This 131-nucleotide RNA sequence from Burkholderia sp. lig30 belongs to the Rfam family "SAH (S-adenosyl-L-homocysteine) riboswitch aptamer". Taxonomically the source falls in Burkholderia (Bacteria, Pseudomonadati, Pseudomonadota, Betaproteobacteria).

RNA sequence: UUUUCCGAGGAGCGUUGCGACGGGCGCGAUCAGCGUGCCCGCCAGGCUCGGAAGACUUCACCGAGCGGCCAUGCGCGGCGGCGAUCGACGAUCGCACCGGCGUGCCGCUUCCUGAACGGCGCUCACGUCAC
Dot-bracket structure: .(((((((............((((((((.....))))))))......))))))).............................................................................